The record is an 86-nucleotide RNA sequence from Alkaliphilus metalliredigens, which matches "c-di-GMP-I riboswitch aptamer" in Rfam. The match comes from Rfam's covariance-model search (84 bits). Pairs were carried over by alignment from the consensus structure, which is taken from published work. Taxonomically the source falls in Alkaliphilus metalliredigens (Bacteria, Clostridia, Peptostreptococcales, Natronincolaceae).
RNA sequence: AAUAAGUAAAGGCAAAACCAUCGAAAGAUGGUGACGCAAAGCCACGAAUCUAAGUCGUUUGACGAUAGGAUAGUCGGGUUGCCUAU
Numbered sequence: 001a002a003u004a005a006g007u008a009a010a011g012g013c014a015a016a017a018c019c020a021u022c023g024a025a026a027g028a029u030g031g032u033g034a035c036g037c038a039a040a041g042c043c044a045c046g047a048a049u050c051u052a053a054g055u056c057g058u059u060u061g062a063c064g065a066u067a068g069g070a071u072a073g074u075c076g077g078g079u080u081g082c083c084u085a086u
Base pairs, nucleotide, nucleotide: 012037013036017032018031019030020029021028022027040080041079042078043077045076046075047074048071049070050069055065056064057063058062